Rfam assigns this 75-nucleotide RNA sequence from Cnephaeus nilssonii to the family "mir-9223 microRNA precursor family". A search with the family's covariance model found it, with a score of 80 bits. Its family is annotated with RISC complex and miRNA-mediated post-transcriptional gene silencing in the Gene Ontology. NCBI's taxonomy places the organism under Eukaryota, Bilateria, Gnathostomata, Amniota, Cnephaeus.
RNA sequence: GGUGGUUCUCGGGUGAUGCACCCCAGAAUUGGGCUCGCUCCUCUCUGGUUCUGGGUGCAUCACCUGAGAACCAGA
Numbered sequence: 001g002g003u004g005g006u007u008c009u010c011g012g013g014u015g016a017u018g019c020a021c022c023c024c025a026g027a028a029u030u031g032g033g034c035u036c037g038c039u040c041c042u043c044u045c046u047g048g049u050u051c052u053g054g055g056u057g058c059a060u061c062a063c064c065u066g067a068g069a070a071c072c073a074g075a
Base pairs, nucleotide, nucleotide: 003073005071006070007069008068009067010066011065012064013063014062015061016060017059019057020056021055022054023053025052026051027050028049029048030047031046032045033044